[Rfam]
RNA sequence: AUCAAAUGAAGACCUCCUAUAUUCAUUUGAUAGAAAAAUCCUAAACUUUUCUUUUUCAUAAUAAUCUCCCAUAAGGAUCGCCAAAUUUGGCGGUCUUUUU
Numbered sequence: 001a002u003c004a005a006a007u008g009a010a011g012a013c014c015u016c017c018u019a020u021a022u023u024c025a026u027u028u029g030a031u032a033g034a035a036a037a038a039u040c041c042u043a044a045a046c047u048u049u050u051c052u053u054u055u056u057c058a059u060a061a062u063a064a065u066c067u068c069c070c071a072u073a074a075g076g077a078u079c080g081c082c083a084a085a086u087u088u089g090g091c092g093g094u095c096u097u098u099u100u
Stems, first nucleotide, its partner, number of pairs: 001031010074097009
RNA: Cia-dependent small RNA csRNA1
Organism: Streptococcus sp. DD10